[Rfam]
RNA sequence: UUGACUGGCAAAUGAUAACGAUUAUUAUUGCACUCAGCUGAUCGCGAGAUCCGCUGGAUAACCUGAAAGCUUAGGUCGCUCUCAGAUUAUCUCCUCAUCAGGCUAAUCACGGUUUUUGACCCGGCUUUUUUGCCGGGUCUUUUUUUU
Numbered sequence: 001u002u003g004a005c006u007g008g009c010a011a012a013u014g015a016u017a018a019c020g021a022u023u024a025u026u027a028u029u030g031c032a033c034u035c036a037g038c039u040g041a042u043c044g045c046g047a048g049a050u051c052c053g054c055u056g057g058a059u060a061a062c063c064u065g066a067a068a069g070c071u072u073a074g075g076u077c078g079c080u081c082u083c084a085g086a087u088u089a090u091c092u093c094c095u096c097a098u099c100a101g102g103c104u105a106a107u108c109a110c111g112g113u114u115u116u117u118g119a120c121c122c123g124g125c126u127u128u129u130u131u132g133c134c135g136g137g138u139c140u141u142u143u144u145u146u147u
Stems, first nucleotide, its partner, number of pairs: 035056004040051004063085004068080003093102003118139008

Source information:
A member of the RNA family "PrrF RNA" from Pseudomonas putida, 147 nucleotides long. PrrF RNA is a small RNA involved in iron homeostasis and is found exclusively in Pseudomonas species. The base pairs follow the family's consensus structure, which is taken from published work. It is one of the family's seed sequences. Rfam 15.1 lists 107 matches to the family in 85 species. Rfam classes the family as a small RNA.